[Rfam]
RNA sequence: AUUGGGAAGAGGAAGAAAAAGAGCACCUAAGAGCAUUAGGCAUGGGAACAUGGAGGAAAGCCUGAACCAUUAUUUCCCUUUAAAAUUAGGGGUCACAAUAUGUUCCUGUGUUUUCCCAAUACCUCCCAUGCCUAUUGUUCUCAGGUGUUCCUUUCCUCUUCCUUUUGGCU
Numbered sequence: 001a002u003u004g005g006g007a008a009g010a011g012g013a014a015g016a017a018a019a020a021g022a023g024c025a026c027c028u029a030a031g032a033g034c035a036u037u038a039g040g041c042a043u044g045g046g047a048a049c050a051u052g053g054a055g056g057a058a059a060g061c062c063u064g065a066a067c068c069a070u071u072a073u074u075u076c077c078c079u080u081u082a083a084a085a086u087u088a089g090g091g092g093u094c095a096c097a098a099u100a101u102g103u104u105c106c107u108g109u110g111u112u113u114u115c116c117c118a119a120u121a122c123c124u125c126c127c128a129u130g131c132c133u134a135u136u137g138u139u140c141u142c143a144g145g146u147g148u149u150c151c152u153u154u155c156c157u158c159u160u161c162c163u164u165u166u167g168g169c170u
Base pairs, nucleotide, nucleotide: 009161010160011159012158013157015155016154017153021150022149023148026145027144028143030141031140032139033138034137035136037134038133039132040131041130042129043128044127045126046125047124050120051119053117055116056115057114058113059112060111061110
RNA: MIR2118 microRNA precursor family
Organism: Oryza nivara